[Rfam]
RNA sequence: CUGCAGCUUAUUAAGCCGACCAGUUGUGCUCCGUGUGUUCCUGGUGUGCAAAGGCUGCAGACAGUGACUCAGUGGAUGUGUAUGUUCUCAGCUGGGAAGUGCUGAGCGCUUUAAGGGACCGCUGAGACAAAA
Numbered sequence: 001c002u003g004c005a006g007c008u009u010a011u012u013a014a015g016c017c018g019a020c021c022a023g024u025u026g027u028g029c030u031c032c033g034u035g036u037g038u039u040c041c042u043g044g045u046g047u048g049c050a051a052a053g054g055c056u057g058c059a060g061a062c063a064g065u066g067a068c069u070c071a072g073u074g075g076a077u078g079u080g081u082a083u084g085u086u087c088u089c090a091g092c093u094g095g096g097a098a099g100u101g102c103u104g105a106g107c108g109c110u111u112u113a114a115g116g117g118a119c120c121g122c123u124g125a126g127a128c129a130a131a132a
Base pairs, nucleotide, nucleotide: 002050003049004048005047019045020044021043022042026038027037028036074120075119085108087106088105089104090103
RNA: Small nucleolar RNA SNORA70